Rfam assigns this 150-nucleotide RNA to the family "RT-14 RNA".
Nucleotides: 150
Base pairs, nucleotide, nucleotide: 003057004056005055006054007053008052009051014048015047021042022041023040024039025038026037027036028035029034079091080090081089105150106149107148108147109146110145111144112143113142114141115140116139117138123133124132
Number, partner (000 for none) and nucleotide at each position: 001000c002000u003057c004056u005055a006054a007053u008052a009051c010000a011000a012000a013000u014048u015047u016000u017000a018000g019000a020000u021042u022041a023040u024039a025038u026037a027036u028035u029034u030000u031000a032000a033000g034029g035028a036027a037026u038025a039024u040023a041022u042021a043000c044000a045000g046000u047015a048014a049000a050000g051009g052008u053007g054006u055005u056004a057003g058000u059000a060000u061000u062000a063000a064000a065000g066000a067000g068000a069000u070000u071000u072000a073000u074000u075000c076000c077000u078000u079091c080090c081089u082000a083000a084000u085000a086000a087000a088000a089081a090080g091079g092000u093000a094000a095000a096000a097000a098000a099000g100000a101000a102000a103000c104000a105150a106149u107148a108147a109146a110145a111144u112143a113142a114141a115140u116139g117138u118000u119000a120000g121000u122000a123133a124132a125000a126000a127000g128000u129000a130000u131000u132124u133123u134000g135000a136000a137000u138117a139116u140115a141114u142113u143112u144111a145110u146109u147108u148107u149106a150105u
Rfam's curators put it in the seed alignment. By type it is a small RNA.